RNA sequence: CGAUGAGGUAGAGGUCGCGGAUAUCAAGAGUAUAUGCCCGGAGACGUUCAAGAGCCGUCUGUGAAAGGCAUGGAAAGGGAUAUCCGCCGAAGUCCGCGCUGCCGCUCUUACAGCAGCGCAGAUUGGGGCCGUCACCGACAAGGUGCGGAACUGUCACGGCAUCGCUGCUAUCACCGCAGCGGCGCUGUGUUGCGCUAUCUUACAG
Numbered sequence: 001c002g003a004u005g006a007g008g009u010a011g012a013g014g015u016c017g018c019g020g021a022u023a024u025c026a027a028g029a030g031u032a033u034a035u036g037c038c039c040g041g042a043g044a045c046g047u048u049c050a051a052g053a054g055c056c057g058u059c060u061g062u063g064a065a066a067g068g069c070a071u072g073g074a075a076a077g078g079g080a081u082a083u084c085c086g087c088c089g090a091a092g093u094c095c096g097c098g099c100u101g102c103c104g105c106u107c108u109u110a111c112a113g114c115a116g117c118g119c120a121g122a123u124u125g126g127g128g129c130c131g132u133c134a135c136c137g138a139c140a141a142g143g144u145g146c147g148g149a150a151c152u153g154u155c156a157c158g159g160c161a162u163c164g165c166u167g168c169u170a171u172c173a174c175c176g177c178a179g180c181g182g183c184g185c186u187g188u189g190u191u192g193c194g195c196u197a198u199c200u201u202a203c204a205g
Base pairs, nucleotide, nucleotide: 006200007199008198009197010196011195017087018086019085020084021083022082023081024080025079033072034071035070036069037068038067091124092123093122094121096119097118098117099116100115101114102113125152126151129148130147131146133145134144135143136142155189156188157187158186159185160184
RNA: Lysine riboswitch aptamer
Organism: Paenibacillus donghaensis